RNA sequence: UUUGCUAAUAAACGUUAAAAGUUCUUAUCGGCUUAAUCUCCGAUACACAUCCCAUGUGGAUGUAUAGAGAUUAACAUAUUUUUGGAAUUGGUUCGGUUCGCAGAAGCUUGCUUCUCGCCGGACAGCGUCGGCCCAGCAUUGCACUUGCCGCUGGGAACGGCGCACACCCC
Numbered sequence: 001u002u003u004g005c006u007a008a009u010a011a012a013c014g015u016u017a018a019a020a021g022u023u024c025u026u027a028u029c030g031g032c033u034u035a036a037u038c039u040c041c042g043a044u045a046c047a048c049a050u051c052c053c054a055u056g057u058g059g060a061u062g063u064a065u066a067g068a069g070a071u072u073a074a075c076a077u078a079u080u081u082u083u084g085g086a087a088u089u090g091g092u093u094c095g096g097u098u099c100g101c102a103g104a105a106g107c108u109u110g111c112u113u114c115u116c117g118c119c120g121g122a123c124a125g126c127g128u129c130g131g132c133c134c135a136g137c138a139u140u141g142c143a144c145u146u147g148c149c150g151c152u153g154g155g156a157a158c159g160g161c162g163c164a165c166a167c168c169c170c
Base pairs, nucleotide, nucleotide: 026045027044028043029042030041031040047063048062049061050060051059052058091123092122093121094120095119096118097117103114104113105112106111125163126162127161128160129159130158132155133154134153135152136151137150
RNA: U2 spliceosomal RNA
Organism: Mesorhabditis spiculigera